[Rfam]
RNA sequence: GCCCUUUGUGUGUGCUUUUAUUCAACUGGUGGAGAAAAUCAUGAAAGAUAGAUGCAAAAAUAAAUUCUCCUUUGCAACCUAGAACUCAUUGUUCAUUAUGAGUUUUGACACAUAUAAGAAGUAAUAUG
Numbered sequence: 001g002c003c004c005u006u007u008g009u010g011u012g013u014g015c016u017u018u019u020a021u022u023c024a025a026c027u028g029g030u031g032g033a034g035a036a037a038a039u040c041a042u043g044a045a046a047g048a049u050a051g052a053u054g055c056a057a058a059a060a061u062a063a064a065u066u067c068u069c070c071u072u073u074g075c076a077a078c079c080u081a082g083a084a085c086u087c088a089u090u091g092u093u094c095a096u097u098a099u100g101a102g103u104u105u106u107g108a109c110a111c112a113u114a115u116a117a118g119a120a121g122u123a124a125u126a127u128g
Stems, first nucleotide, its partner, number of pairs: 001055001003054001005052005011046001014040001016038004021033001026031001064125003068121001071118004080107010

This 128-nucleotide RNA from Nannospalax galili belongs to the Rfam family "Small nucleolar RNA SNORA40". The base pairs follow the family's consensus structure, which was predicted with RNAalifold. A reference for the family is Ofengand and Bakin (1997), "Mapping to nucleotide resolution of pseudouridine residues in large subunit ribosomal RNAs from representative eukaryotes, prokaryotes, archaebacteria, mitochondria and chloroplasts", J Mol Biol. About the family: The snoRNA ACA 40 belongs to the H/ACA family of snoRNAs and guides the pseudouridylation of 28S rRNA subunit at position U4565. NB This family has a high threshold value to exclude a large number of closely related sequences that do not appear to have conserved H and ACA boxes, and may be pseudogenes. The organism belongs to Nannospalax, within Eukaryota. It is annotated as an H/ACA-box small nucleolar RNA.